[Rfam]
The record is a 141-nucleotide RNA from Piscibacillus halophilus, which matches "FMN riboswitch aptamer (RFN element)" in Rfam. Rfam describes the family as follows. The RFN element is a highly conserved domain that is found frequently in the 5'-untranslated regions of prokaryotic mRNAs that encode for flavin mononucleotide (FMN) biosynthesis and transport proteins. The organism belongs to Piscibacillus, within Bacteria. Rfam links the family to the GO term FMN binding.

RNA sequence: UAUAUCCUUCGGGGCUGGGUGAAAAUCCCGACCGGCGGUGAUGGAUGAACUAUAUCAUUCUAAGUCCGCGACCCGCAUAAUGCGGUUGAUCUAGUUAAAAUCUAGAACCGACAGUGAGAGUCUGGAUGGGAGAAGGAUCGG
Numbered sequence: 001u002a003u004a005u006c007c008u009u010c011g012g013g014g015c016u017g018g019g020u021g022a023a024a025a026u027c028c029c030g031a032c033c034g035g036c037g038g039u040g041a042u043g044g045a046u047g048a049a050c051u052a053u054a055u056c057a058u059u060c061u062a063a064g065u066c067c068g069c070g071a072c073c074c075g076c077a078u079a080a081u082g083c084g085g086u087u088g089a090u091c092u093a094g095u096u097a098a099a100a101u102c103u104a105g106a107a108c109c110g111a112c113a114g115u116g117a118g119a120g121u122c123u124g125g126a127u128g129g130g131a132g133a134a135g136g137a138u139c140g141g
Stems, first nucleotide, its partner, number of pairs: 004138007017029003031121002033110002035069004064108002073085002090106005112124003